This 114-nucleotide RNA from Rhodanobacter fulvus belongs to the Rfam family "t44 RNA".
NCBI's taxonomy places the organism under Bacteria, Pseudomonadota, Gammaproteobacteria, Rhodanobacteraceae, Rhodanobacter fulvus.
By type it is a small RNA.
This family consists of a number of bacterial RNA genes of between 135 and 170 bases in length. The t44 gene has been identified in several species of enteric bacteria but homologs have also been identified in Pseudomonas and Coxiella species. The t44 gene is found between the map and rpsB genes in all species in the full alignment apart from Shigella flexneri. The function of this RNA is unknown.
[Rfam]
RNA sequence: CAACACCCAAACCAACGCCACACACGUAUCGGCACCGUCUUCGGGGUGCUGCGCCCUGCCCACUCACAAACCGGGCAGUCGCGGUCGAAGUCGGGGAUGCGUGGAGGUCCCAAC
Number, nucleotide and partner (000 for none) at each position: 001c000002a000003a000004c000005a000006c000007c000008c000009a000010a000011a000012c000013c000014a000015a000016c000017g000018c000019c000020a000021c000022a000023c103024a102025c101026g100027u099028a098029u097030c096031g000032g000033c000034a000035c094036c093037g092038u000039c090040u089041u088042c087043g086044g000045g000046g000047u000048g085049c084050u083051g082052c081053g000054c000055c000056c000057u000058g000059c000060c000061c000062a000063c000064u000065c000066a000067c000068a000069a000070a000071c000072c000073g000074g000075g000076c000077a000078g000079u000080c000081g052082c051083g050084g049085u048086c043087g042088a041089a040090g039091u000092c037093g036094g035095g000096g030097a029098u028099g027100c026101g025102u024103g023104g000105a000106g000107g000108u000109c000110c000111c000112a000113a000114c000